Shown here is an 88-nucleotide RNA sequence from Mesitornis unicolor, a member of the family "mir-1426 microRNA precursor family". The source organism's lineage runs through Eukaryota, Opisthokonta, Deuterostomia, Mesitornithiformes and Mesitornis.
[Rfam]
RNA sequence: CAGGGUUGACCUUCUUUCCUUAACUCAUGCCGCUGUGCCUUUUCAUUAAUUUCACAAUGGCGUGAGUUGAGCACAGAGUGUCAGUCCU
Numbered sequence: 001c002a003g004g005g006u007u008g009a010c011c012u013u014c015u016u017u018c019c020u021u022a023a024c025u026c027a028u029g030c031c032g033c034u035g036u037g038c039c040u041u042u043u044c045a046u047u048a049a050u051u052u053c054a055c056a057a058u059g060g061c062g063u064g065a066g067u068u069g070a071g072c073a074c075a076g077a078g079u080g081u082c083a084g085u086c087c088u
Stems, first nucleotide, its partner, number of pairs: 004086007012078002019071010034056004
Gene Ontology terms of the family: miRNA-mediated post-transcriptional gene silencing and RISC complex.
The family has 2 seed sequences and 326 matches in Rfam 15.1.